Background
Eukaryotic large subunit ribosomal RNA: a 284-nucleotide part of an RNA from Phycomyces blakesleeanus. The base pairs follow the family's consensus structure, which is taken from published work. NCBI's taxonomy places the organism under Eukaryota, Opisthokonta, Fungi, Phycomycetaceae, Phycomyces blakesleeanus. The match comes from Rfam's covariance-model search (3291 bits).

Nucleotides: 284
Stems, first nucleotide, its partner, number of pairs: 005140003009136009020044003025039005048055002061088005069079002090123002092120003095116003102109001143282002146279001150272006159248011170236001172204004179196007208233004213229002216227002250260002
Number, partner (000 for none) and nucleotide at each position: 001000g002000a003000g004000u005140c006139c007138a008000c009136c010135a011134u012133a013132a014131a015130u016129g017128c018000g019000a020044g021043u022042a023000u024000u025039u026038g027037g028036g029035u030000g031000c032000c033000a034000a035029a036028c037027c038026c039025a040000u041000a042022u043021g044020c045000g046000a047000a048055a049054g050000g051000a052000a053000a054049c055048u056000g057000a058000a059000u060000g061088g062087a063086u064085a065084u066000g067000a068000a069079u070078c071000c072000c073000u074000u075000g076000a077000g078070g079069a080000g081000g082000c083000a084065a085064u086063a087062u088061c089000a090123u091122c092120c093119g094118g095116c096115u097114u098000u099000g100000a101000c102109g103000u104000u105000u106000u107000a108000a109102c110000u111000g112000a113000a114097g115096a116095g117000a118094c119093c120092g121000a122091g123090a124000u125000u126000g127000a128017g129016c130015a131014u132013u133012u134011a135010u136009g137000a138007u139006g140005g141000g142000a143282c144281c145000c146279g147000a148000a149000a150272g151271a152270u153269g154268g155267u156000g157000a158000a159248c160247u161246a162245u163244g164243c165242c166241u167240g168239a169238a170236u171000a172204g173203g174202g175201u176000g177000a178000a179196g180195c181194c182193a183192g184191a185190g186000g187000a188000a189000a190185c191184u192183c193182u194181g195180g196179u197000g198000g199000a200000g201175g202174c203173u204172c205000g206000u207000a208233g209232c210231g211230a212000u213229u214228c215000u216227g217226a218000c219000g220000u221000g222000c223000a224000a225000a226217u227216c228214g229213a230211u231210c232209g233208u234000c235000a236170a237000a238169u239168u240167u241166g242165g243164g244163u245162a246161u247160a248159g249000g250260g251259g252000c253000g254000a255000a256000a257000g258000a259251c260250u261000a262000a263000u264000c265000g266000a267155a268154c269153c270152a271151u272150c273000u274000a275000g276000u277000a278000g279146c280000u281144g282143g283000u284000u